[Rfam]
Annotation: Shown here is an 85-nucleotide sequence from Dioscorea zingiberensis, a member of the family "Small nucleolar RNA R44/J54/Z268 family". The family is grouped with related families in Rfam's "SNORD74 clan". The base pairs follow the family's consensus structure, which was predicted with PFOLD. The family has 29 seed sequences and 1,168 matches in Rfam 15.1. Lineage of the source: Eukaryota > Streptophytina > Euphyllophyta > Dioscoreaceae > Dioscorea. Rfam classes the family as a C/D-box small nucleolar RNA. It scores 58 bits against the family's covariance model.
RNA sequence: UAUGCAAGUGAUGAUAUAAACAGACAGGGACAUCUGUACUCUUUUUUAGGCUGAUUUCUUCGUCUUGGGAAUCUCUCUGUGCAUU
Numbered sequence: 001u002a003u004g005c006a007a008g009u010g011a012u013g014a015u016a017u018a019a020a021c022a023g024a025c026a027g028g029g030a031c032a033u034c035u036g037u038a039c040u041c042u043u044u045u046u047u048a049g050g051c052u053g054a055u056u057u058c059u060u061c062g063u064c065u066u067g068g069g070a071a072u073c074u075c076u077c078u079g080u081g082c083a084u085u
Stems, first nucleotide, its partner, number of pairs: 002084005
Dot-bracket structure: .(((((.........................................................................))))).